[Rfam]
RNA: Small nucleolar RNA SNORD116
RNA sequence: GUAUCGAUGAUGACCCUCACUAAUGCAUUCCUUGGAAAUCUGAACAAAAUGAGUGAGAAAUCUCUGUCGUCUCUUCCUUGGAACUGAGGUCC
Numbered sequence: 001g002u003a004u005c006g007a008u009g010a011u012g013a014c015c016c017u018c019a020c021u022a023a024u025g026c027a028u029u030c031c032u033u034g035g036a037a038a039u040c041u042g043a044a045c046a047a048a049a050u051g052a053g054u055g056a057g058a059a060a061u062c063u064c065u066g067u068c069g070u071c072u073c074u075u076c077c078u079u080g081g082a083a084c085u086g087a088g089g090u091c092c
Stems, first nucleotide, its partner, number of pairs: 001092001003090003026055005032047003